[Rfam]
This 58-nucleotide sequence from Tupaia belangeri belongs to the Rfam family "mir-103/107 microRNA precursor family". Rfam describes the family as follows. This family consists of the mammalian microRNA (miRNA) precursors mir-103 and mir107. Animal miRNAs are transcribed as ~70nt precursors and subsequently processed by the Dicer enzyme to give a ~22nt product. In this case the mature sequence comes from the 3' arm of the precursor. The extents of the hairpin precursors are not generally known and are estimated based on hairpin prediction. The products are thought to have regulatory roles through complementarity to mRNA. The involvement of Dicer in miRNA processing suggests a relationship with the phenomenon of RNA interference. miRNAs are numbered based on the sequence of the mature RNA. The base pairs follow the family's consensus structure, which was predicted with RNAalifold. The source organism's lineage runs through Eukaryota, Bilateria, Tetrapoda, Tupaia and Tupaia belangeri. Rfam 15.1 lists 1,982 matches to the family in 645 species. Rfam links the family to the GO terms miRNA-mediated post-transcriptional gene silencing and RISC complex.
RNA sequence: AGCUUCUUUACAGUGUUGCCUUGUGGCAUGGAGUUCAAGCAGCAUUGUACAGGGCUAU
Numbered sequence: 001a002g003c004u005u006c007u008u009u010a011c012a013g014u015g016u017u018g019c020c021u022u023g024u025g026g027c028a029u030g031g032a033g034u035u036c037a038a039g040c041a042g043c044a045u046u047g048u049a050c051a052g053g054g055c056u057a058u
Stems, first nucleotide, its partner, number of pairs: 004054004009049010020039004